[Rfam]
RNA sequence: AAGUAGUGUGACAUGCCCGUCCGGGUUAAACUCUGAUUAUUUAUUAUUAUUAUUAAGUUUGGGAUAACGGGGUGUUACAAUAGU
Number, nucleotide and partner (000 for none) at each position: 001a000002a084003g000004u082005a081006g000007u079008g078009u077010g076011a075012c074013a073014u072015g000016c071017c070018c069019g068020u067021c000022c000023g000024g000025g000026u000027u000028a000029a000030a000031c000032u000033c000034u000035g000036a000037u000038u000039a000040u000041u000042u000043a000044u000045u000046a000047u000048u000049a000050u000051u000052a000053u000054u000055a000056a000057g000058u000059u000060u000061g000062g000063g000064a000065u000066a000067a020068c019069g018070g017071g016072g014073u013074g012075u011076u010077a009078c008079a007080a000081u005082a004083g000084u002

Background: Rfam assigns this 84-nucleotide RNA from Medicago truncatula to the family "MIR2617 microRNA precursor family". NCBI's taxonomy places the organism under Eukaryota, eudicotyledons, Gunneridae, Fabales, Medicago. The match comes from Rfam's covariance-model search (51 bits). Pairs were carried over by alignment from the consensus structure, which was predicted with RNAalifold.